RNA: Bacterial large subunit ribosomal RNA, nucleotides 1696 to 2033
RNA sequence: CGAGAUAACUAUAGCUAAGGAACUCUGCAAAAUCACCCCGUACGUUCGCAAGAAGGGGUGCUCAUAACUAUGAGCCUCAGUAAAGAGGCCGGGGGAACUGUUUACCAAAAACACAGCUCUGUGCUAAGUCGUAAGACAAUGUAUACAGGGUGACGCCUGCCCAGUGUCGGAAGGUUAAAGCGAGAUGUCAGCGGUUUUGCCGCGAAGCAUUGACCUGAAGCCCCGAUGAACGGCGGCCGUAACUAUAACGGUCCUAAGGUAGCGAAAUUCCUUGUCAGGUAAGUUCUGACCCGCACGAAUGGCGUAAUCAUCCCGGCGCUGUCUCGGCUAUAGACUCG
Numbered sequence: 001c002g003a004g005a006u007a008a009c010u011a012u013a014g015c016u017a018a019g020g021a022a023c024u025c026u027g028c029a030a031a032a033u034c035a036c037c038c039c040g041u042a043c044g045u046u047c048g049c050a051a052g053a054a055g056g057g058g059u060g061c062u063c064a065u066a067a068c069u070a071u072g073a074g075c076c077u078c079a080g081u082a083a084a085g086a087g088g089c090c091g092g093g094g095g096a097a098c099u100g101u102u103u104a105c106c107a108a109a110a111a112c113a114c115a116g117c118u119c120u121g122u123g124c125u126a127a128g129u130c131g132u133a134a135g136a137c138a139a140u141g142u143a144u145a146c147a148g149g150g151u152g153a154c155g156c157c158u159g160c161c162c163a164g165u166g167u168c169g170g171a172a173g174g175u176u177a178a179a180g181c182g183a184g185a186u187g188u189c190a191g192c193g194g195u196u197u198u199g200c201c202g203c204g205a206a207g208c209a210u211u212g213a214c215c216u217g218a219a220g221c222c223c224c225g226a227u228g229a230a231c232g233g234c235g236g237c238c239g240u241a242a243c244u245a246u247a248a249c250g251g252u253c254c255u256a257a258g259g260u261a262g263c264g265a266a267a268u269u270c271c272u273u274g275u276c277a278g279g280u281a282a283g284u285u286c287u288g289a290c291c292c293g294c295a296c297g298a299a300u301g302g303c304g305u306a307a308u309c310a311u312c313c314c315g316g317c318g319c320u321g322u323c324u325c326g327g328c329u330a331u332a333g334a335c336u337c338g
Stems, first nucleotide, its partner, number of pairs: 001338004009333008018324003035059005044049001060075006076080001088317007095309002099113003116151008124141001128137003154304004159234003164231002166227005173222003179216002184211005191203005235253006254258001264291001274290006